[Rfam]
About this RNA
Shown here is a 65-nucleotide RNA sequence from Pyrus ussuriensis x Pyrus communis, a member of the family "Plastid-psbA-1 3UTR RNA". A search with the family's covariance model found it, with a score of 56 bits.
RNA sequence: UUCUUGAAAGUAAAGGAGUAAUAAAAAAUUUCUUGUUAUAUCAAGAGGUUUGUUAUUGCUCCUUU
Numbered sequence: 001u002u003c004u005u006g007a008a009a010g011u012a013a014a015g016g017a018g019u020a021a022u023a024a025a026a027a028a029u030u031u032c033u034u035g036u037u038a039u040a041u042c043a044a045g046a047g048g049u050u051u052g053u054u055a056u057u058g059c060u061c062c063u064u065u
Stems, first nucleotide, its partner, number of pairs: 012065013026051003030047005

On this family, see Richter et al., Plant Commun 2023: "Retrograde signaling in plants: A critical review focusing on the GUN pathway and beyond".
Its Rfam clan is "Plastid-psbA 3UTR RNA clan".